Shown here is a 68-nucleotide sequence from Alteribacillus iranensis, a member of the family "Bacillaceae-1 RNA". The match comes from Rfam's covariance-model search (54 bits). It is annotated as a small RNA.

RNA sequence: UGGAGAGGUACUUCUACUAAAACCGCACACGUCGUGUGUGCAACGUAGAAGCCACCGCCUCCUGCGGA
Numbered sequence: 001u002g003g004a005g006a007g008g009u010a011c012u013u014c015u016a017c018u019a020a021a022a023c024c025g026c027a028c029a030c031g032u033c034g035u036g037u038g039u040g041c042a043a044c045g046u047a048g049a050a051g052c053c054a055c056c057g058c059c060u061c062c063u064g065c066g067g068a
Stems, first nucleotide, its partner, number of pairs: 011051007026040005055067004